[Rfam]
RNA sequence: CACGUGCAUCAAGAGCCGGAUCCAUUCCGGCACCAACCUGCCCACUCCGGCAAGGUGGUAGCCCACAACGGGCGAUGCGGCUGAAACAGGCAACUAAAGGAGGCCCC
Numbered sequence: 001c002a003c004g005u006g007c008a009u010c011a012a013g014a015g016c017c018g019g020a021u022c023c024a025u026u027c028c029g030g031c032a033c034c035a036a037c038c039u040g041c042c043c044a045c046u047c048c049g050g051c052a053a054g055g056u057g058g059u060a061g062c063c064c065a066c067a068a069c070g071g072g073c074g075a076u077g078c079g080g081c082u083g084a085a086a087c088a089g090g091c092a093a094c095u096a097a098a099g100g101a102g103g104c105c106c107c
Stems, first nucleotide, its partner, number of pairs: 006078005015031006032059003037055003040051003045102004080091003
Overview
Shown here is a 107-nucleotide RNA from Aliiruegeria lutimaris, a member of the family "SAM-I/IV (S-adenosyl methionine) riboswitch aptamer". The family's consensus secondary structure is taken from published work.